[Rfam]
RNA: glmS glucosamine-6-phosphate activated ribozyme aptamer
RNA sequence: UCCAUUCAACAAGCGCCCGGACUGUUUUUGGACGGAAAUAAAAACAGUUGACGAGGAGGAGGUUUAUCGAAGUAUCGGCGGAUACCUCCCGGUUUUUGCGGCACAACCGUUAGCUUUUGCCUAAAACGAGGAGGCGACUCUUCGCACAAAAGUAAAAGCAGUGGCCGCA
Numbered sequence: 001u002c003c004a005u006u007c008a009a010c011a012a013g014c015g016c017c018c019g020g021a022c023u024g025u026u027u028u029u030g031g032a033c034g035g036a037a038a039u040a041a042a043a044a045c046a047g048u049u050g051a052c053g054a055g056g057a058g059g060a061g062g063u064u065u066a067u068c069g070a071a072g073u074a075u076c077g078g079c080g081g082a083u084a085c086c087u088c089c090c091g092g093u094u095u096u097u098g099c100g101g102c103a104c105a106a107c108c109g110u111u112a113g114c115u116u117u118u119g120c121c122u123a124a125a126a127c128g129a130g131g132a133g134g135c136g137a138c139u140c141u142u143c144g145c146a147c148a149a150a151a152g153u154a155a156a157a158g159c160a161g162u163g164g165c166c167g168c169a
Base pairs, nucleotide, nucleotide: 020049021048022047023046024045025044026043027042029040058089059088060087061086062085067078068077069076070075090109091108092107093106094105113159114158115157116156117155118154119153127144128143129142130141131140132139133138